[Rfam]
RNA sequence: UUAAUGUUUCUUGCUCAAAUGAGUAUUCCAUCUACACUUACAAAUUACUCAAAUCUGUGUGGAUGAGACGCUCAUUUGAGCGAGCAAUGUUAA
Dot-bracket structure: ...(((((.(((((((((((((((.((.(((((((.......................))))))).)).))))))))))))))).)))))...
RNA: MIR828 microRNA precursor family